[Rfam]
RNA sequence: CUUUGGCAUCCAGAGUCCCACGCGACCUCUUGAAGCGUGGGCGGCAACCGGGUCAAGCGCGAUCACGGUGCCGAGGUCAGCCCUUCUGGGGUGAUGCGGCACGCAAGGCCAUGCCUUGUGCAGCAACAUCAGCGCUCGUUGA
Numbered sequence: 001c002u003u004u005g006g007c008a009u010c011c012a013g014a015g016u017c018c019c020a021c022g023c024g025a026c027c028u029c030u031u032g033a034a035g036c037g038u039g040g041g042c043g044g045c046a047a048c049c050g051g052g053u054c055a056a057g058c059g060c061g062a063u064c065a066c067g068g069u070g071c072c073g074a075g076g077u078c079a080g081c082c083c084u085u086c087u088g089g090g091g092u093g094a095u096g097c098g099g100c101a102c103g104c105a106a107g108g109c110c111a112u113g114c115c116u117u118g119u120g121c122a123g124c125a126a127c128a129u130c131a132g133c134g135c136u137c138g139u140u141g142a
Stems, first nucleotide, its partner, number of pairs: 006097005015042001017041007043072003048068003051064003056136004099124002